RNA: IMES-2 RNA motif
RNA sequence: AAAUGAAUUAAGAGGCAACUCUUAACUGGCCAGCUAAAGAAAAGCCGAGAGGUUCAAAGUUAGCGGGCAGAAAGUCCUGCAAAGUAGCGCUUAACAUAGCGGGGCGGCAGGUUCGGCGGUAGCGACUACAACGACGAACCAA
Numbered sequence: 001a002a003a004u005g006a007a008u009u010a011a012g013a014g015g016c017a018a019c020u021c022u023u024a025a026c027u028g029g030c031c032a033g034c035u036a037a038a039g040a041a042a043a044g045c046c047g048a049g050a051g052g053u054u055c056a057a058a059g060u061u062a063g064c065g066g067g068c069a070g071a072a073a074g075u076c077c078u079g080c081a082a083a084g085u086a087g088c089g090c091u092u093a094a095c096a097u098a099g100c101g102g103g104g105c106g107g108c109a110g111g112u113u114c115g116g117c118g119g120u121a122g123c124g125a126c127u128a129c130a131a132c133g134a135c136g137a138a139c140c141a142a
Stems, first nucleotide, its partner, number of pairs: 008025007026070003030067002033064005043054004074105007088124004110140006117133002